[Rfam]
RNA sequence: AUGGUCUGGGGAAAGGCUCCUGUGUUGUUGAAACUGCCCAGUUGUGGGUGCAGCCUUAUACCAGGAAGCCCAACCUUGAUCUAAAGCAAAUUCCCAGGAGAAGUCUUUCCUAGGAUUUGAAUUUGCAGUAACAGCUGUGAACAUUCUAGCAGCACUUUGAUCAUGUAUGAUACUGCAAACAGGA
Number, nucleotide and partner (000 for none) at each position: 001a000002u000003g081004g080005u079006c078007u000008g076009g075010g074011g000012a000013a000014a000015g070016g069017c068018u067019c065020c064021u063022g062023u000024g061025u060026u000027g054028u053029u052030g051031a000032a049033a000034c047035u000036g000037c000038c000039c000040a000041g000042u000043u000044g000045u000046g000047g034048g000049u032050g000051c030052a029053g028054c027055c000056u000057u000058a000059u000060a025061c024062c022063a021064g020065g019066a000067a018068g017069c016070c015071c000072a000073a000074c010075c009076u008077u000078g006079a005080u004081c003082u000083a000084a000085a000086g000087c000088a000089a000090a000091u000092u000093c114094c113095c000096a000097g109098g108099a107100g106101a000102a000103g000104u000105c000106u100107u099108u098109c097110c000111u000112a000113g094114g093115a000116u000117u000118u000119g000120a000121a000122u179123u178124u177125g176126c175127a174128g173129u172130a171131a000132c169133a168134g000135c000136u000137g000138u163139g162140a161141a000142c159143a000144u000145u000146c000147u000148a157149g156150c000151a000152g000153c000154a000155c000156u149157u148158u000159g142160a000161u140162c139163a138164u000165g000166u000167a000168u133169g132170a000171u130172a129173c128174u127175g126176c125177a124178a123179a122180c000181a000182g000183g000184a000

Shown here is a 184-nucleotide sequence from Sapajus apella, a member of the family "Small Cajal body specific RNA 16". Rfam describes the family as follows. scaRNAs are a specific class of small nuclear RNAs which localise to the Cajal bodies and guide the modification of RNA polymerase II transcribed spliceosomal RNAs U1, U2, U4, U5 and U12. ACA47 belongs to the H/ACA box class of guide RNAs as it has the predicted hairpin-hinge-hairpin-tail structure, the conserved H/ACA-box motifs and is found associated with GAR1. ACA47 is predicted to guide the pseudouridylation of residue U5 of the U1 spliceosomal snRNA. It scores 181 bits against the family's covariance model. Rfam classes the family as a small Cajal body RNA. NCBI's taxonomy places the organism under Eukaryota, Vertebrata, Amniota, Boreoeutheria, Sapajus.